[Rfam]
RNA sequence: UUUUGUCUUGCGGAAGAGACCGGCUCAUGCCCGGCGCCGAAGGAGCAACCGCCCCGGAAACUCUCAGGCAACAAGGACCGCAAGACUACU
Numbered sequence: 001u002u003u004u005g006u007c008u009u010g011c012g013g014a015a016g017a018g019a020c021c022g023g024c025u026c027a028u029g030c031c032c033g034g035c036g037c038c039g040a041a042g043g044a045g046c047a048a049c050c051g052c053c054c055c056g057g058a059a060a061c062u063c064u065c066a067g068g069c070a071a072c073a074a075g076g077a078c079c080g081c082a083a084g085a086c087u088a089c090u
Stems, first nucleotide, its partner, number of pairs: 006085008020034004036069003039065002043063003049057002